[Rfam]
RNA sequence: CUCACUUCACGGUAGGCCAUAGCAGAAAUGCUUGUCGCACAGCCAUGUCAGAUUCUAACAAAUCUGUGAAUUCUUCU
Numbered sequence: 001c002u003c004a005c006u007u008c009a010c011g012g013u014a015g016g017c018c019a020u021a022g023c024a025g026a027a028a029u030g031c032u033u034g035u036c037g038c039a040c041a042g043c044c045a046u047g048u049c050a051g052a053u054u055c056u057a058a059c060a061a062a063u064c065u066g067u068g069a070a071u072u073c074u075u076c077u
Base pairs, nucleotide, nucleotide: 013045015044016043017042021077022076024074025073026072027071029039030038049066050065051064052063053062054061
RNA: Mammalian CPEB3 ribozyme